The record is a 122-nucleotide RNA sequence from Pseudosulfitobacter pseudonitzschiae, which matches "Alphaproteobacterial ar14" in Rfam. Rfam links the family to the GO term biological process involved in symbiotic interaction. Pairs were carried over by alignment from the consensus structure.
RNA sequence: AAAUACGCGGCGGUCUCUCCUCCCAGAUCCCGUCGCACCCUAAAAUUGUCGGGCCUCUCCUCCUCCCUGGUUCCGACAAUUGCAAAGGCGGCGGUCCCAUCCUCCCGGGGCCGCCGUUUUUU
Numbered sequence: 001a002a003a004u005a006c007g008c009g010g011c012g013g014u015c016u017c018u019c020c021u022c023c024c025a026g027a028u029c030c031c032g033u034c035g036c037a038c039c040c041u042a043a044a045a046u047u048g049u050c051g052g053g054c055c056u057c058u059c060c061u062c063c064u065c066c067c068u069g070g071u072u073c074c075g076a077c078a079a080u081u082g083c084a085a086a087g088g089c090g091g092c093g094g095u096c097c098c099a100u101c102c103u104c105c106c107g108g109g110g111c112c113g114c115c116g117u118u119u120u121u122u
Base pairs, nucleotide, nucleotide: 007036008035009034011032012031013030046079047078048077049076050075051074052073053071054070055069088117089116090115091114092113093112094111095110096109097108098107